Shown here is a 123-nucleotide RNA sequence from Iocasia frigidifontis, a member of the family "FMN riboswitch aptamer (RFN element)".
A search with the family's covariance model found it, with a score of 111 bits.
RNA sequence: AAAUACUAAUGAGGAUGGGUGAAAUUCCCUACCGGUGGUUAAAGUCCACAAGCCUUUUUAUAAAAAGGUUGAUCUGGUGAAACUCCAGAACCGACAGUAUAGUCUGGAAGGGAGUUAGUAUAA
Numbered sequence: 001a002a003a004u005a006c007u008a009a010u011g012a013g014g015a016u017g018g019g020u021g022a023a024a025u026u027c028c029c030u031a032c033c034g035g036u037g038g039u040u041a042a043a044g045u046c047c048a049c050a051a052g053c054c055u056u057u058u059u060a061u062a063a064a065a066a067g068g069u070u071g072a073u074c075u076g077g078u079g080a081a082a083c084u085c086c087a088g089a090a091c092c093g094a095c096a097g098u099a100u101a102g103u104c105u106g107g108a109a110g111g112g113a114g115u116u117a118g119u120a121u122a123a
Stems, first nucleotide, its partner, number of pairs: 003121008017029003031103002033093002035049004044091002052069003073089005095106003